[Rfam]
Nucleotides: 093
Stems, first nucleotide, its partner, number of pairs: 006088008020034004036072003039068002043066003050059002
Number, partner (000 for none) and nucleotide at each position: 001000c002000g003000c004000c005000g006088c007087c008086g009085u010084g011083c012082g013081g014000g015000a016000g017000a018000g019000u020034u021033c022032c023031g024000g025000u026000a027000g028000u029000u030000c031023c032022g033021g034020a035000c036072g037071c038070c039068g040067a041000a042000g043066g044065a045064g046000c047000a048000g049000c050059a051058c052000c053000u054000c055000c056000c057000c058051g059050u060000c061000a062000a063000u064045c065044u066043c067040u068039c069000a070038g071037g072036c073000a074000c075000c076000a077000g078000g079000g080000a081013c082012c083011g084010u085009a086008c087007g088006g089000a090000g091000u092000u093000u
Glycine riboswitch aptamer: a 93-nucleotide RNA sequence from Nocardia aurantia. A search with the family's covariance model found it, with a score of 62 bits. The organism belongs to Nocardia, within Bacteria. Rfam links the family to the GO term glycine biosynthetic process.